[Rfam]
Purine riboswitch aptamer: a 112-nucleotide RNA sequence from Paenibacillus yonginensis. Pairs were carried over by alignment from the consensus structure, which is taken from published work. The match comes from Rfam's covariance-model search (45 bits). From the family's description: Riboswitches are metabolite binding domains within certain messenger RNAs that serve as precision sensors for their corresponding targets. Allosteric rearrangement of mRNA structure is mediated by ligand binding, and this results in modulation of gene expression. A class of riboswitches that selectively recognises guanine and becomes saturated at concentrations as low as 5 nM. In Bacillus subtilis, this mRNA motif is located on at least five separate transcriptional units that together encode 17 genes that are mostly involved in purine transport and purine nucleotide biosynthesis. The family is grouped with related families in Rfam's "Purine riboswitches".
RNA sequence: CAAGCUAUUCUAUAUUCCUUUCGUAUAACCUCGCAGGCCGAAUCGUGUACACAGGGCGAGGGUUUCUACAGGGAGCCUUAACUUCCUAACUACGAAGCUAUGAAAAGAGCUA
Numbered sequence: 001c002a003a004g005c006u007a008u009u010c011u012a013u014a015u016u017c018c019u020u021u022c023g024u025a026u027a028a029c030c031u032c033g034c035a036g037g038c039c040g041a042a043u044c045g046u047g048u049a050c051a052c053a054g055g056g057c058g059a060g061g062g063u064u065u066c067u068a069c070a071g072g073g074a075g076c077c078u079u080a081a082c083u084u085c086c087u088a089a090c091u092a093c094g095a096a097g098c099u100a101u102g103a104a105a106a107g108a109g110c111u112a
Stems, first nucleotide, its partner, number of pairs: 019097007029061006071087005